[Rfam]
A member of the RNA family "Eukaryotic large subunit ribosomal RNA" from Entomortierella parvispora, 397 nucleotides of a longer RNA. NCBI's taxonomy places the organism under Eukaryota, Fungi, Mortierellomycota, Mortierellomycotina, Entomortierella. The family's consensus secondary structure is taken from published work.
RNA sequence: GAAAUGUUGUUGCAAUAGUAAUUAAAGUUAGUACGAGAGGAACACUUUAUUCGGAUAAUUGGUAUUUGGGCCUGCCUGAGCAGGCAAUGGCCCGAAGCUAUCAUCCGUUGGAUUAUGGCUGAACGCCUCUAAGUCAGAAUCCGUGCUAGAACGCGACGAUUACCGCCUUUUCCGAUUUUUAGUUGAAUACGAAUAGAGCUUCGGCUCCUGAAUCAUAUUACGUGGGGUGGUCUUGUAGAGCGGAAAGGCUUUAUGAGGCUCCUGCUAAUGUUAAUUUCAAAUAUUGGAAGAGAUAAAUCCAUUGCAGACGACUUUAAUUGAACGGGGUAUUGUAAGCAGACGAGUAUCCUUGUUGAUACGAGCUGCUGAGAUUAAGCCCAUUGUUCUACAGAUUUGU
Numbered sequence: 001g002a003a004a005u006g007u008u009g010u011u012g013c014a015a016u017a018g019u020a021a022u023u024a025a026a027g028u029u030a031g032u033a034c035g036a037g038a039g040g041a042a043c044a045c046u047u048u049a050u051u052c053g054g055a056u057a058a059u060u061g062g063u064a065u066u067u068g069g070g071c072c073u074g075c076c077u078g079a080g081c082a083g084g085c086a087a088u089g090g091c092c093c094g095a096a097g098c099u100a101u102c103a104u105c106c107g108u109u110g111g112a113u114u115a116u117g118g119c120u121g122a123a124c125g126c127c128u129c130u131a132a133g134u135c136a137g138a139a140u141c142c143g144u145g146c147u148a149g150a151a152c153g154c155g156a157c158g159a160u161u162a163c164c165g166c167c168u169u170u171u172c173c174g175a176u177u178u179u180u181a182g183u184u185g186a187a188u189a190c191g192a193a194u195a196g197a198g199c200u201u202c203g204g205c206u207c208c209u210g211a212a213u214c215a216u217a218u219u220a221c222g223u224g225g226g227g228u229g230g231u232c233u234u235g236u237a238g239a240g241c242g243g244a245a246a247g248g249c250u251u252u253a254u255g256a257g258g259c260u261c262c263u264g265c266u267a268a269u270g271u272u273a274a275u276u277u278c279a280a281a282u283a284u285u286g287g288a289a290g291a292g293a294u295a296a297a298u299c300c301a302u303u304g305c306a307g308a309c310g311a312c313u314u315u316a317a318u319u320g321a322a323c324g325g326g327g328u329a330u331u332g333u334a335a336g337c338a339g340a341c342g343a344g345u346a347u348c349c350u351u352g353u354u355g356a357u358a359c360g361a362g363c364u365g366c367u368g369a370g371a372u373u374a375a376g377c378c379c380a381u382u383g384u385u386c387u388a389c390a391g392a393u394u395u396g397u
Stems, first nucleotide, its partner, number of pairs: 006160008016148004021051001023049006052107005060100003067094005073086005109143003116136005168291007295395005301315001304312001320386005325379003329372002336366004341362001344359005